The family of this 258-nucleotide RNA sequence from Salvia splendens is "RNase MRP". The organism belongs to core Calosphace, within Eukaryota. The family's RNA type in Rfam is ribozyme. The family is grouped with related families in Rfam's "RNaseP clan". The match comes from Rfam's covariance-model search (88 bits). The base pairs follow the family's consensus structure, which is taken from published work.

RNA sequence: AUGCCAUUGGAUGGAGUGAAAGGAUUGAGGCCCAUCAUUUAAAUGAGCUAAAUCCAGGAAAGUCCCCGGGCCACAAUCCGUAGAGAUAUACGGGCUUGGAAACAAGUAAAUCUCAUUGGCGGGCCGCCCUUGGGCUGAGACGCGUGUGGAGCCCUUGUGGCUGCUGCCAUGAGUGAAAAUUUGGCCGAAUAUUACACAGUUAUUCACUUGGCCCAAAUCUAAUUGGGCUAACUGAACGGGGCUUACAUUCCAAUGGCU
Number, nucleotide and partner (000 for none) at each position: 001a000002u000003g257004c256005c255006a254007u253008u252009g251010g250011a249012u000013g000014g209015a208016g207017u206018g205019a204020a000021a000022g000023g000024a000025u000026u000027g000028a000029g000030g000031c000032c000033c000034a000035u000036c000037a000038u000039u000040u000041a000042a000043a000044u000045g000046a000047g000048c000049u000050a000051a000052a000053u000054c000055c000056a000057g000058g000059a000060a244061a243062g242063u000064c241065c240066c239067c238068g000069g000070g000071c000072c000073a000074c000075a000076a000077u000078c000079c092080g091081u090082a089083g000084a000085g000086a000087u000088a000089u082090a081091c080092g079093g000094g107095c106096u105097u104098g103099g000100a000101a000102a000103c098104a097105a096106g095107u094108a000109a000110a000111u000112c000113u000114c000115a000116u000117u169118g168119g167120c166121g165122g164123g000124c160125c159126g158127c157128c000129c000130u000131u000132g154133g153134g152135c151136u000137g000138a000139g000140a000141c000142g147143c000144g000145u000146g000147u142148g000149g000150a000151g135152c134153c133154c132155u000156u000157g127158u126159g125160g124161c000162u000163g000164c122165u121166g120167c119168c118169a117170u000171g000172a000173g000174u000175g000176a000177a000178a000179a000180u000181u000182u000183g000184g000185c000186c000187g000188a000189a000190u000191a000192u000193u000194a000195c000196a000197c000198a000199g000200u000201u000202a000203u000204u019205c018206a017207c016208u015209u014210g000211g228212c227213c226214c225215a224216a223217a000218u000219c000220u000221a000222a000223u216224u215225g214226g213227g212228c211229u000230a000231a000232c000233u000234g000235a000236a000237c000238g067239g066240g065241g064242c062243u061244u060245a000246c000247a000248u000249u011250c010251c009252a008253a007254u006255g005256g004257c003258u000